[Rfam]
This 114-nucleotide sequence from Heyndrickxia sporothermodurans belongs to the Rfam family "SAM riboswitch aptamer (S box leader)". NCBI's taxonomy places the organism under Bacteria, Bacillota, Bacilli, Bacillaceae, Heyndrickxia. Rfam describes the family as follows. The SAM riboswitch is found upstream of a number of genes which code for proteins involved in methionine or cysteine biosynthesis in Gram-positive bacteria.

RNA sequence: CUCUUAUCGAGAGCGGCGGAGGGACUAGGCCCUUUGAUGCCCGGCAACCUUCAAGCAUUUUGCUUGAAAAGGUGCUAAUUCCUACAGAUCCUUUAAAGAUCUGAAAGAUAAGGG
Numbered sequence: 001c002u003c004u005u006a007u008c009g010a011g012a013g014c015g016g017c018g019g020a021g022g023g024a025c026u027a028g029g030c031c032c033u034u035u036g037a038u039g040c041c042c043g044g045c046a047a048c049c050u051u052c053a054a055g056c057a058u059u060u061u062g063c064u065u066g067a068a069a070a071g072g073u074g075c076u077a078a079u080u081c082c083u084a085c086a087g088a089u090c091c092u093u094u095a096a097a098g099a100u101c102u103g104a105a106a107g108a109u110a111a112g113g114g
Stems, first nucleotide, its partner, number of pairs: 001114008013042001015041003021032003026084004043076004048072002050068006080106001085103006